[Rfam]
Description
A member of the RNA family "MIR168 microRNA precursor family" from Thalictrum thalictroides, 128 nucleotides long. The family's consensus secondary structure was predicted with WAR. The match comes from Rfam's covariance-model search (97 bits). The literature on the family includes a 2005 paper in Plant Cell by Lu et al., "Novel and mechanical stress-responsive MicroRNAs in Populus trichocarpa that are absent from Arabidopsis".

RNA sequence: UUCACUACUGUCUCUGAUUCGCUUGGUGCAGGUCGGGAAUCAAAGCUUGGCUUUGCUUGAUUGAUUUCGAUCUAGAAAGCGAAUUGAAAUCCCGCCUUGCAUCAACUGAAUCGGAGAUUAUAGUGAAA
Numbered sequence: 001u002u003c004a005c006u007a008c009u010g011u012c013u014c015u016g017a018u019u020c021g022c023u024u025g026g027u028g029c030a031g032g033u034c035g036g037g038a039a040u041c042a043a044a045g046c047u048u049g050g051c052u053u054u055g056c057u058u059g060a061u062u063g064a065u066u067u068c069g070a071u072c073u074a075g076a077a078a079g080c081g082a083a084u085u086g087a088a089a090u091c092c093c094g095c096c097u098u099g100c101a102u103c104a105a106c107u108g109a110a111u112c113g114g115a116g117a118u119u120a121u122a123g124u125g126a127a128a
Stems, first nucleotide, its partner, number of pairs: 013115002017111004023105010034094005040087002